Rfam assigns this 107-nucleotide RNA to the family "EGFOA RNA". Rfam's curators put it in the seed alignment.

[Rfam]
RNA sequence: ACUUUCCCAGAUUUUGUCCCGUCGUAGAUGGCAGUCGAAACAAACUCUUCUGAGUGGUAGGUAAAGCUACACCUGGGCUACCUUAACAAUAGUUAUGAAGUUUCGAU
Numbered sequence: 001a002c003u004u005u006c007c008c009a010g011a012u013u014u015u016g017u018c019c020c021g022u023c024g025u026a027g028a029u030g031g032c033a034g035u036c037g038a039a040a041c042a043a044a045c046u047c048u049u050c051u052g053a054g055u056g057g058u059a060g061g062u063a064a065a066g067c068u069a070c071a072c073c074u075g076g077g078c079u080a081c082c083u084u085a086a087c088a089a090u091a092g093u094u095a096u097g098a099a100g101u102u103u104c105g106a107u
Stems, first nucleotide, its partner, number of pairs: 006077005021072002024070004034107008044055004056082005
About this RNA:
Rfam classes the family as a small RNA.